[Rfam]
The family of this 382-nucleotide sequence from Cebus imitator is "Cyp24a1 internal ribosome entry site (IRES)". The family's consensus secondary structure was predicted with RNAfold. Its family is annotated with ribosome binding in the Gene Ontology. It scores 248 bits against the family's covariance model. On this family, see Rubsamen et al., PLoS One 2014: "Inflammatory conditions induce IRES-dependent translation of cyp24a1".
RNA sequence: GACCGGAAGGAACGCGGCGCCAGCAACAUCUCACCUACCCUCCUUGACACCUCCUCCCUGCGGUUCCAGCCAGACCUUAGAAGUCAGACUUGCAGACCAACAGGAGGACUCCCAGCUUUCCCUUUCCAAGAGGUCCCCAGCCCCUACGGCCAGCACAAGGAGGCACCAACGCUCUGAGGCUGCCGCACGGUGCACCGUCGAGCAUCCUCGCCUAGAUCCUUUCUGCCCGGUCCCGCCUCACCCCGCUCCAUCACACCAGCCGGCCCUCUUUGCCUCCCCUUCCCAGAAUCAUUAAGCCCCCAGAUCCCACCAGUGCCUAGUACCCACCUCGCCCCACCCCAUCCCGGUGCCUUCCCACACCCCAGUGUCCCCCGCUGCCAUG
Numbered sequence: 001g002a003c004c005g006g007a008a009g010g011a012a013c014g015c016g017g018c019g020c021c022a023g024c025a026a027c028a029u030c031u032c033a034c035c036u037a038c039c040c041u042c043c044u045u046g047a048c049a050c051c052u053c054c055u056c057c058c059u060g061c062g063g064u065u066c067c068a069g070c071c072a073g074a075c076c077u078u079a080g081a082a083g084u085c086a087g088a089c090u091u092g093c094a095g096a097c098c099a100a101c102a103g104g105a106g107g108a109c110u111c112c113c114a115g116c117u118u119u120c121c122c123u124u125u126c127c128a129a130g131a132g133g134u135c136c137c138c139a140g141c142c143c144c145u146a147c148g149g150c151c152a153g154c155a156c157a158a159g160g161a162g163g164c165a166c167c168a169a170c171g172c173u174c175u176g177a178g179g180c181u182g183c184c185g186c187a188c189g190g191u192g193c194a195c196c197g198u199c200g201a202g203c204a205u206c207c208u209c210g211c212c213u214a215g216a217u218c219c220u221u222u223c224u225g226c227c228c229g230g231u232c233c234c235g236c237c238u239c240a241c242c243c244c245g246c247u248c249c250a251u252c253a254c255a256c257c258a259g260c261c262g263g264c265c266c267u268c269u270u271u272g273c274c275u276c277c278c279c280u281u282c283c284c285a286g287a288a289u290c291a292u293u294a295a296g297c298c299c300c301c302a303g304a305u306c307c308c309a310c311c312a313g314u315g316c317c318u319a320g321u322a323c324c325c326a327c328c329u330c331g332c333c334c335c336a337c338c339c340c341a342u343c344c345c346g347g348u349g350c351c352u353u354c355c356c357a358c359a360c361c362c363c364a365g366u367g368u369c370c371c372c373c374g375c376u377g378c379c380a381u382g
Stems, first nucleotide, its partner, number of pairs: 003347004009343002014231002016228002019226002022224002039163008050153001062151004068145002090140003095135004103125005169205001171203004176199002179196001181194002184192003207215002242263002245260003286306002289302001313332002360377001363374001365372001